Shown here is a 126-nucleotide RNA from Faecalibacterium gallinarum, a member of the family "FMN riboswitch aptamer (RFN element)". A search with the family's covariance model found it, with a score of 118 bits. Its family is annotated with FMN binding in the Gene Ontology. Pairs were carried over by alignment from the consensus structure, which is taken from published work.
RNA sequence: AGUUCGUUUCAGGGCGGGGUGCAACUCCCCACCGGCGGUACAGCCCGCGACCGUCUGCCCCAGGGCAGGCGCUGACCCGGUGAGAUUCCGGGGCCGACGGUAUAGUCCGGAUGAAAGAGACGAGAG
Number, nucleotide and partner (000 for none) at each position: 001a000002g000003u124004u123005c122006g121007u120008u119009u118010c117011a000012g000013g000014g000015c000016g000017g029018g028019g027020u000021g000022c000023a000024a000025c000026u000027c019028c018029c017030c000031a106032c105033c096034g095035g048036c047037g046038g045039u000040a000041c000042a000043g094044c093045c038046c037047g036048c035049g000050a000051c000052c071053g070054u000055c000056u000057g000058c000059c000060c000061c000062a000063g000064g000065g000066c000067a000068g000069g000070c053071g052072c000073u000074g000075a000076c092077c091078c090079g089080g088081u000082g000083a000084g000085a000086u000087u000088c080089c079090g078091g077092g076093g044094c043095c034096g033097a000098c109099g108100g107101u000102a000103u000104a000105g032106u031107c100108c099109g098110g000111a000112u000113g000114a000115a000116a000117g010118a009119g008120a007121c006122g005123a004124g003125a000126g000